[Rfam]
RNA sequence: GAUCCGAGAGUAUAAGUAAGAAUAAUUUCUUACUUACCAUACUCUCUAUUAGUGUUAUAGUAAUGUAUAAAGUUGUACUU
Numbered sequence: 001g002a003u004c005c006g007a008g009a010g011u012a013u014a015a016g017u018a019a020g021a022a023u024a025a026u027u028u029c030u031u032a033c034u035u036a037c038c039a040u041a042c043u044c045u046c047u048a049u050u051a052g053u054g055u056u057a058u059a060g061u062a063a064u065g066u067a068u069a070a071a072g073u074u075g076u077a078c079u080u
Stems, first nucleotide, its partner, number of pairs: 006046008014035008